[Rfam]
RNA sequence: CACGUCUGGUGAGGAGAGAAAAAGGACAGGUUUCGCUAAAAUAAUAGCUGAACGAUAAUAUGUCGAGACACCUUGGCUGUCUGAGGACG
Numbered sequence: 001c002a003c004g005u006c007u008g009g010u011g012a013g014g015a016g017a018g019a020a021a022a023a024g025g026a027c028a029g030g031u032u033u034c035g036c037u038a039a040a041a042u043a044a045u046a047g048c049u050g051a052a053c054g055a056u057a058a059u060a061u062g063u064c065g066a067g068a069c070a071c072c073u074u075g076g077c078u079g080u081c082u083g084a085g086g087a088c089g
Stems, first nucleotide, its partner, number of pairs: 003089004
Source information
The record is an 89-nucleotide RNA sequence from Caenorhabditis remanei, which matches "Caenorhabditis snoRNA ceN28" in Rfam. Lineage of the source: Eukaryota > Eumetazoa > Rhabditina > Rhabditidae > Caenorhabditis. A search with the family's covariance model found it, with a score of 111 bits. The base pairs follow the family's consensus structure. On this family, see Jia et al., BMC Mol Biol 2007: "Systematic identification of non-coding RNA 2,2,7-trimethylguanosine cap structures in Caenorhabditis elegans".